[Rfam]
RNA sequence: CAAAUCCUUCGGGGCAGGGUGAAAUUCCCGACCGGCGGUGAUAGAGGCUACGAGCCUCUUCAGUCCGUGAGCUGCGGCUUUUUUGGCCAAUGCUGACCCGGUGCAAGUCCGGGACCGACAGUAUAGUCUGGAUGGGAGAAGGAUGGA
Numbered sequence: 001c002a003a004a005u006c007c008u009u010c011g012g013g014g015c016a017g018g019g020u021g022a023a024a025u026u027c028c029c030g031a032c033c034g035g036c037g038g039u040g041a042u043a044g045a046g047g048c049u050a051c052g053a054g055c056c057u058c059u060u061c062a063g064u065c066c067g068u069g070a071g072c073u074g075c076g077g078c079u080u081u082u083u084u085g086g087c088c089a090a091u092g093c094u095g096a097c098c099c100g101g102u103g104c105a106a107g108u109c110c111g112g113g114a115c116c117g118a119c120a121g122u123a124u125a126g127u128c129u130g131g132a133u134g135g136g137a138g139a140a141g142g143a144u145g146g147a
Stems, first nucleotide, its partner, number of pairs: 004144007017029003031127002033117002035068004063115002071093002097113005119130003
RNA: FMN riboswitch aptamer (RFN element)
Organism: Aneurinibacillus sp. XH2